[Rfam]
RNA sequence: UCGACGAAGUGGCAAACUUGGUGAAAACCAGGGACGCAAAGCUAAAGGGACUAACGUGUUACGCUAUGUCAGCCAGCUGCCGAA
Numbered sequence: 001u002c003g004a005c006g007a008a009g010u011g012g013c014a015a016a017c018u019u020g021g022u023g024a025a026a027a028c029c030a031g032g033g034a035c036g037c038a039a040a041g042c043u044a045a046a047g048g049g050a051c052u053a054a055c056g057u058g059u060u061a062c063g064c065u066a067u068g069u070c071a072g073c074c075a076g077c078u079g080c081c082g083a084a
Stems, first nucleotide, its partner, number of pairs: 012037002017032006040078004047074002049070003056064003
Shown here is an 84-nucleotide RNA sequence from Paenibacillus cremeus, a member of the family "c-di-GMP-I riboswitch aptamer". It scores 74 bits against the family's covariance model. For this family Rfam cites "Identification of 22 candidate structured RNAs in bacteria using the CMfinder comparative genomics pipeline" (Weinberg et al., Nucleic Acids Res, 2007). GEMM was predicted in a large-scale screen for bacterial structured RNA regulatory elements. Taxonomically the source falls in Paenibacillus (Bacteria, Bacillota, Bacilli, Caryophanales).